A member of the RNA family "mir-10 microRNA precursor family" from Geotrypetes seraphini, 70 nucleotides long. Taxonomically the source falls in Geotrypetes (Eukaryota, Opisthokonta, Chordata, Vertebrata). A search with the family's covariance model found it, with a score of 67 bits. On this family, see Lee and Ambros, Science 2001: "An extensive class of small RNAs in Caenorhabditis elegans". Its family is annotated with miRNA-mediated post-transcriptional gene silencing and RISC complex in the Gene Ontology.

RNA sequence: UGCCACAAACCCGUAGAUCCGAACUUGUGGUCCAAUCUCUCACAAGCUCGUAUCUGCAGGGAUGUGUCUG
Numbered sequence: 001u002g003c004c005a006c007a008a009a010c011c012c013g014u015a016g017a018u019c020c021g022a023a024c025u026u027g028u029g030g031u032c033c034a035a036u037c038u039c040u041c042a043c044a045a046g047c048u049c050g051u052a053u054c055u056g057c058a059g060g061g062a063u064g065u066g067u068c069u070g
Stems, first nucleotide, its partner, number of pairs: 002068001004066004010060002015055004020050003024046006